RNA: Glycine riboswitch aptamer
Nucleotides: 085
Stems, first nucleotide, its partner, number of pairs: 001083002004080005015028004030069003033065002037063001039061001043056002
Number, partner (000 for none) and nucleotide at each position: 001083c002082c003000g004080c005079u006078c007077u008076g009000g010000a011000a012000a013000g014000a015028g016027a017026u018025g019000c020000u021000c022000c023000g024000g025018c026017a027016u028015c029000c030069g031068c032067c033065g034064a035000c036000g037063g038000u039061g040000a041000a042000a043056g044055c045000c046000c047000u048000g049000c050000u051000c052000a053000g054000g055044g056043c057000g058000a059000a060000g061039c062000u063037c064034u065033c066000a067032g068031g069030c070000c071000c072000a073000u074000g075000a076008c077007a078006g079005a080004g081000g082002g083001g084000g085000a